[Rfam]
RNA: RT-16 RNA
RNA sequence: UCUCUGAUGAGAAGGCUUAAAGCGCUUUUUCGUGGAGGCCACACGCCCACUUGCAAUGGCCAUUAUGUUUUUGGGCUAUAAAGUGCAGCUCUGACAAAAGCGUUUGCUUAAAGCUGAAAGAGCAGUGGAGUUUAGUGCAAGCAGGGCUACUCUGU
Numbered sequence: 001u002c003u004c005u006g007a008u009g010a011g012a013a014g015g016c017u018u019a020a021a022g023c024g025c026u027u028u029u030u031c032g033u034g035g036a037g038g039c040c041a042c043a044c045g046c047c048c049a050c051u052u053g054c055a056a057u058g059g060c061c062a063u064u065a066u067g068u069u070u071u072u073g074g075g076c077u078a079u080a081a082a083g084u085g086c087a088g089c090u091c092u093g094a095c096a097a098a099a100g101c102g103u104u105u106g107c108u109u110a111a112a113g114c115u116g117a118a119a120g121a122g123c124a125g126u127g128g129a130g131u132u133u134a135g136u137g138c139a140a141g142c143a144g145g146g147c148u149a150c151u152c153u154g155u
Base pairs, nucleotide, nucleotide: 001038002037003036004035005034006033009030010029011028012027013026014025045147046146047145048144050141051140052139053138054137055133056132060128061127088123089122090121091120092119095116096115098109099108100107101106